Rfam assigns this 83-nucleotide RNA from Streptomyces niveus to the family "nrdJ RNA". The organism belongs to Streptomyces niveus, within Bacteria.
RNA sequence: ACCCGUCACGAGCGCCCCACGAGGCGCCCGUGGCAACGGACACAUCACUGUGCCAUGGGAAGAACGUGGCACUUCAGGGCGUU
Numbered sequence: 001a002c003c004c005g006u007c008a009c010g011a012g013c014g015c016c017c018c019a020c021g022a023g024g025c026g027c028c029c030g031u032g033g034c035a036a037c038g039g040a041c042a043c044a045u046c047a048c049u050g051u052g053c054c055a056u057g058g059g060a061a062g063a064a065c066g067u068g069g070c071a072c073u074u075c076a077g078g079g080c081g082u083u
Base pairs, nucleotide, nucleotide: 005034006033007032008031009030010029012027013026014025016024017023050072051071052070053069054068055067056066057065
It is annotated as a small RNA.